The record is a 96-nucleotide RNA from Papaver nudicaule, which matches "Small nucleolar RNA snoR109" in Rfam. Pairs were carried over by alignment from the consensus structure, which was predicted with WAR. Lineage of the source: Eukaryota > Streptophytina > Magnoliopsida > Ranunculales > Papaver. A reference for the family is Marker et al. (2002), "Experimental RNomics: identification of 140 candidates for small non-messenger RNAs in the plant Arabidopsis thaliana", Curr Biol.
RNA sequence: AAACUUUUAAAAUGAAUGAAAAAGAAGUUUACUGGUCGGUUGGUGGGAGAUUUUUCUCUUUAAUCGACAAAUCUGCUUACCGAACUUCUCACAUCC
Number, nucleotide and partner (000 for none) at each position: 001a000002a000003a000004c000005u000006u000007u000008u000009a000010a000011a000012a000013u000014g000015a000016a000017u000018g000019a000020a000021a000022a000023a089024g088025a087026a086027g085028u084029u083030u000031a000032c000033u000034g077035g076036u075037c000038g073039g072040u071041u070042g068043g000044u066045g065046g000047g000048a000049g000050a000051u000052u000053u000054u000055u000056c000057u000058c000059u000060u000061u000062a000063a000064u000065c045066g044067a000068c042069a000070a041071a040072u039073c038074u000075g036076c035077u034078u000079a000080c000081c000082g000083a029084a028085c027086u026087u025088c024089u023090c000091a000092c000093a000094u000095c000096c000